[Rfam]
RNA sequence: CGAAUUUUUACCGCCUCUCAUAGAGUGGCGGGGUAGCGACGUUUUGAGUAAAUGAUACCCACCCGCCGGCGAGGCGGGUUUU
Numbered sequence: 001c002g003a004a005u006u007u008u009u010a011c012c013g014c015c016u017c018u019c020a021u022a023g024a025g026u027g028g029c030g031g032g033g034u035a036g037c038g039a040c041g042u043u044u045u046g047a048g049u050a051a052a053u054g055a056u057a058c059c060c061a062c063c064c065g066c067c068g069g070c071g072a073g074g075c076g077g078g079u080u081u082u
Stems, first nucleotide, its partner, number of pairs: 011031005017025001061079007
RNA: Pseudomonas sRNA P9